[Rfam]
RNA sequence: AGGGCUUUGUUUGCUCUGUUUAAAUCCUUAUAGGUAGACAGAAAUGCAGGGAUAAAGGUGACAAUAAUUGAUCAGAUAAAUAAAAAAGAAAUCAGAUUUUGAAAGAUUGCGGAGAUGAAAGCUAAUGGUGGCCCCAAGAGGACUUGAACCUCUGACCACCACCA
Numbered sequence: 001a002g003g004g005c006u007u008u009g010u011u012u013g014c015u016c017u018g019u020u021u022a023a024a025u026c027c028u029u030a031u032a033g034g035u036a037g038a039c040a041g042a043a044a045u046g047c048a049g050g051g052a053u054a055a056a057g058g059u060g061a062c063a064a065u066a067a068u069u070g071a072u073c074a075g076a077u078a079a080a081u082a083a084a085a086a087a088g089a090a091a092u093c094a095g096a097u098u099u100u101g102a103a104a105g106a107u108u109g110c111g112g113a114g115a116u117g118a119a120a121g122c123u124a125a126u127g128g129u130g131g132c133c134c135c136a137a138g139a140g141g142a143c144u145u146g147a148a149c150c151u152c153u154g155a156c157c158a159c160c161a162c163c164a
Stems, first nucleotide, its partner, number of pairs: 008063003014057002017054005082092001126161006135154002138152004
Overview:
Rfam assigns this 164-nucleotide sequence from Nitratifractor salsuginis to the family "Bacterial antisense RNA HPnc0260". NCBI's taxonomy places the organism under Bacteria, Pseudomonadati, Epsilonproteobacteria, Nitratifractor, Nitratifractor salsuginis.